[Rfam]
RNA sequence: UGCUCAAACCCAGGUUCAAUCGUGCAACUCAUUCGCCUUUUACUAAUCAGUUCCGUGGAUCUGGGUUAAAUUAUGAGCUUAGUUUAAUUUUUUUUCGCCCUAGUCUUACUGGGGCA
Numbered sequence: 001u002g003c004u005c006a007a008a009c010c011c012a013g014g015u016u017c018a019a020u021c022g023u024g025c026a027a028c029u030c031a032u033u034c035g036c037c038u039u040u041u042a043c044u045a046a047u048c049a050g051u052u053c054c055g056u057g058g059a060u061c062u063g064g065g066u067u068a069a070a071u072u073a074u075g076a077g078c079u080u081a082g083u084u085u086a087a088u089u090u091u092u093u094u095u096c097g098c099c100c101u102a103g104u105c106u107u108a109c110u111g112g113g114g115c116a
Stems, first nucleotide, its partner, number of pairs: 003077004008066011026052004031047003095116001097115006
Dot-bracket structure: ..((((.(((((((((((.......((((.(((...........))).))))...))))))))))).......)))).................(.((((((.......)))))))
The record is a 116-nucleotide RNA from Dimorphilus gyrociliatus, which matches "U5 spliceosomal RNA" in Rfam. It scores 72 bits against the family's covariance model. The literature on the family includes a 1990 paper in Nucleic Acids Res by Thomas et al., "The spliceosomal snRNAs of Caenorhabditis elegans". Rfam classes the family as a spliceosomal small nuclear RNA.